[Rfam]
RNA sequence: AUAUGUAACUAGGGGAGUAAUUGUGUGAUUGCUGAGAGGAAACCUUGAGUUUCGACCCUUUACCUGAUCUAGGUCAUGCUAGCGUAGGGAAGUAUGUAUUAUUAUUG
Numbered sequence: 001a002u003a004u005g006u007a008a009c010u011a012g013g014g015g016a017g018u019a020a021u022u023g024u025g026u027g028a029u030u031g032c033u034g035a036g037a038g039g040a041a042a043c044c045u046u047g048a049g050u051u052u053c054g055a056c057c058c059u060u061u062a063c064c065u066g067a068u069c070u071a072g073g074u075c076a077u078g079c080u081a082g083c084g085u086a087g088g089g090a091a092g093u094a095u096g097u098a099u100u101a102u103u104a105u106u107g
Stems, first nucleotide, its partner, number of pairs: 008093003011059004017032005039053005063088004069082004
The record is a 107-nucleotide RNA sequence from Clostridium sp. 'deep sea', which matches "TPP riboswitch aptamer (THI element)" in Rfam. NCBI's taxonomy places the organism under Bacteria, Bacillota, Clostridia, Clostridiaceae, Clostridium.